[Rfam]
Actinobacteria sRNA Ms_AS-4: an 82-nucleotide RNA from Actinomycetospora cinnamomea. Lineage of the source: Bacteria > Actinomycetota > Actinomycetes > Pseudonocardiaceae > Actinomycetospora. It scores 61 bits against the family's covariance model.
RNA sequence: CUUGUGAUCUUGGUAGCGGUGCGGGUCGUCGCCGAACUCGGCGAGCACCCGGGCGCCCAGCACGGUCCCGAGUCCCGGCUGG
Numbered sequence: 001c002u003u004g005u006g007a008u009c010u011u012g013g014u015a016g017c018g019g020u021g022c023g024g025g026u027c028g029u030c031g032c033c034g035a036a037c038u039c040g041g042c043g044a045g046c047a048c049c050c051g052g053g054c055g056c057c058c059a060g061c062a063c064g065g066u067c068c069c070g071a072g073u074c075c076c077g078g079c080u081g082g
Stems, first nucleotide, its partner, number of pairs: 008044002011041001013039001018038003022034003055079003060075001062073002